[Rfam]
RNA: Glutamine-II riboswitch aptamer
Nucleotides: 058
Stems, first nucleotide, its partner, number of pairs: 004048005010022002013019001033058001035056004039051002
Number, partner (000 for none) and nucleotide at each position: 001000a002000a003000c004048c005047g006046u007045u008044c009000a010022u011021c012000a013019u014000a015000u016000u017000u018000a019013a020000g021011g022010a023000u024000g025000c026000a027000g028000u029000u030000c031000g032000a033058g034000g035056u036055a037054u038053u039051c040050c041000a042000a043000g044008g045007a046006a047005c048004g049000g050040g051039g052000g053038g054037a055036u056035a057000g058033c